Alphaproteobacteria transfer-messenger RNA: a 364-nucleotide RNA sequence from Aquibium oceanicum.
[Rfam]
RNA sequence: GGGCUUUCCAUCCACGCGCCCGCUCCCUAUAUUGGGCCUGUCGGCUUCGGUCGACUAUGGCGAUAAACGGCCGAUGAAAUAAACCAUUCGGACCCGGGGGCGGUACCCGGCGCCUCCACCAAAAACCGCGGCAUGUCAGUGACUUGCGGCUUUUGAUGGGGGCGAAACAGGAUCGACGAGGGUGUAAAGAUCGGACUUUCGCUCGGCAUGGUACCACCGUUAUCGGGCUAAACUUAUAGUUGCCAACGACAACUAUGCGGAAGCACGUCUCGCCGCGUAAGCAGCGCGACAGCUUCAAUUCAAGCCCUAGGGGUUCGCACUUCUAGGCGGGGUUCGGAGGCACCUGGCAACAGAAGCCUCCACU
Numbered sequence: 001g002g003g004c005u006u007u008c009c010a011u012c013c014a015c016g017c018g019c020c021c022g023c024u025c026c027c028u029a030u031a032u033u034g035g036g037c038c039u040g041u042c043g044g045c046u047u048c049g050g051u052c053g054a055c056u057a058u059g060g061c062g063a064u065a066a067a068c069g070g071c072c073g074a075u076g077a078a079a080u081a082a083a084c085c086a087u088u089c090g091g092a093c094c095c096g097g098g099g100g101c102g103g104u105a106c107c108c109g110g111c112g113c114c115u116c117c118a119c120c121a122a123a124a125a126c127c128g129c130g131g132c133a134u135g136u137c138a139g140u141g142a143c144u145u146g147c148g149g150c151u152u153u154u155g156a157u158g159g160g161g162g163c164g165a166a167a168c169a170g171g172a173u174c175g176a177c178g179a180g181g182g183u184g185u186a187a188a189g190a191u192c193g194g195a196c197u198u199u200c201g202c203u204c205g206g207c208a209u210g211g212u213a214c215c216a217c218c219g220u221u222a223u224c225g226g227g228c229u230a231a232a233c234u235u236a237u238a239g240u241u242g243c244c245a246a247c248g249a250c251a252a253c254u255a256u257g258c259g260g261a262a263g264c265a266c267g268u269c270u271c272g273c274c275g276c277g278u279a280a281g282c283a284g285c286g287c288g289a290c291a292g293c294u295u296c297a298a299u300u301c302a303a304g305c306c307c308u309a310g311g312g313g314u315u316c317g318c319a320c321u322u323c324u325a326g327g328c329g330g331g332g333u334u335c336g337g338a339g340g341c342a343c344c345u346g347g348c349a350a351c352a353g354a355a356g357c358c359u360c361c362a363c364u
Stems, first nucleotide, its partner, number of pairs: 040055005059203005069196001071194005084182002088179003094110005111164007204219003209230003214226002330345004336361006
About this RNA
The organism belongs to Aquibium, within Bacteria. It is annotated as a non-coding RNA gene.